[Rfam]
RNA sequence: UGACGGGGACCCGCACAAGCGGUGGAUGAUGUGGAUUAAUUCGAUGCAACGCGAAAAACCUUACCUACCCUUGACAUGGACGGAACCUGGCUGAAAGGCUGGGGUGCUCGAAAGAGAACCGUCGCACAGGUGCUGCAUGGCUGUCGUCAGCUCGUGUCGUGAGAUGUUGGGUUAAGUCCCGCAACGAGCGCAACCCUUGUCCCUAGUUGCUACGCAAGAGCACUCUAGGGAGACUGCCGGUGACAAACCGGAGGAAGGUGGGGAUGACGUCAAGUCCUCAUGGCCCUUAUGGGUAGGGCUUCACACGUCAUACAAUGGUCGGAACAGAGGGCUGCCAACCCGUGAGGGGGAGCUAAUCCCAGAAAACCGAUCGUAGUCCGGAUCGCAGUCUGCAACUCGACUGCGUGAAGCUGGAAUCGCUAGUAAUCGCGGAUCAGCAUGCCGCGGUGAAUACGUUCCCGGGUCUUGUACACACCGCCCGUCACACCAUGGGAGUGGGUUUUACCAGAAGUGGCUAGUCUAACCGCAAGGAGGACGGUCACCACGGUAGGAUUCAUGACUGGGGUGAAGUCGUAACAAGG
Numbered sequence: 001u002g003a004c005g006g007g008g009a010c011c012c013g014c015a016c017a018a019g020c021g022g023u024g025g026a027u028g029a030u031g032u033g034g035a036u037u038a039a040u041u042c043g044a045u046g047c048a049a050c051g052c053g054a055a056a057a058a059c060c061u062u063a064c065c066u067a068c069c070c071u072u073g074a075c076a077u078g079g080a081c082g083g084a085a086c087c088u089g090g091c092u093g094a095a096a097g098g099c100u101g102g103g104g105u106g107c108u109c110g111a112a113a114g115a116g117a118a119c120c121g122u123c124g125c126a127c128a129g130g131u132g133c134u135g136c137a138u139g140g141c142u143g144u145c146g147u148c149a150g151c152u153c154g155u156g157u158c159g160u161g162a163g164a165u166g167u168u169g170g171g172u173u174a175a176g177u178c179c180c181g182c183a184a185c186g187a188g189c190g191c192a193a194c195c196c197u198u199g200u201c202c203c204u205a206g207u208u209g210c211u212a213c214g215c216a217a218g219a220g221c222a223c224u225c226u227a228g229g230g231a232g233a234c235u236g237c238c239g240g241u242g243a244c245a246a247a248c249c250g251g252a253g254g255a256a257g258g259u260g261g262g263g264a265u266g267a268c269g270u271c272a273a274g275u276c277c278u279c280a281u282g283g284c285c286c287u288u289a290u291g292g293g294u295a296g297g298g299c300u301u302c303a304c305a306c307g308u309c310a311u312a313c314a315a316u317g318g319u320c321g322g323a324a325c326a327g328a329g330g331g332c333u334g335c336c337a338a339c340c341c342g343u344g345a346g347g348g349g350g351a352g353c354u355a356a357u358c359c360c361a362g363a364a365a366a367c368c369g370a371u372c373g374u375a376g377u378c379c380g381g382a383u384c385g386c387a388g389u390c391u392g393c394a395a396c397u398c399g400a401c402u403g404c405g406u407g408a409a410g411c412u413g414g415a416a417u418c419g420c421u422a423g424u425a426a427u428c429g430c431g432g433a434u435c436a437g438c439a440u441g442c443c444g445c446g447g448u449g450a451a452u453a454c455g456u457u458c459c460c461g462g463g464u465c466u467u468g469u470a471c472a473c474a475c476c477g478c479c480c481g482u483c484a485c486a487c488c489a490u491g492g493g494a495g496u497g498g499g500u501u502u503u504a505c506c507a508g509a510a511g512u513g514g515c516u517a518g519u520c521u522a523a524c525c526g527c528a529a530g531g532a533g534g535a536c537g538g539u540c541a542c543c544a545c546g547g548u549a550g551g552a553u554u555c556a557u558g559a560c561u562g563g564g565g566u567g568a569a570g571u572c573g574u575a576a577c578a579a580g581g
Base pairs, nucleotide, nucleotide: 001472002471003469004468005467007466008465009464010463011462012461013460015456016455019420020419021418022417023416024313026311027310028309029308030307031306032305033304034302035301040055041054042053043052064297065296066295067294068293069292070291077126078125079123080122081121082120083119086103087102088101089100090099091098092097105118107116108115129286130285132284133283134282135281138280139279140275141274142273143271145269146268150189151188152187153186154185155184156165157164158163168181169180170179171178195263196262197261198260200231201230202229203228204227205226206225210220211219234254235253237251238250239249240248241247317372318371319370320369321368322367329360330359331358334353335352339348340347341346379410384405385404386403387402388401389400390399426448427447428446429445430444431443432442475580477577480573481572485567486566487565488564490562491561492560495557496556497555498554499553500552501551502550503549504548505547506546511542512541513540514539515538516537518536519535520534521533524531525530
The record is a 581-nucleotide part of an RNA from Paraburkholderia saeva, which matches "Bacterial small subunit ribosomal RNA" in Rfam.
A reference for the family is Yusupov et al. (2001), "Crystal structure of the ribosome at 5.5 A resolution", Science.
The family has 99 seed sequences and 42,628 matches in Rfam 15.1.
Taxonomically the source falls in Paraburkholderia (Bacteria, Pseudomonadota, Betaproteobacteria, Burkholderiaceae).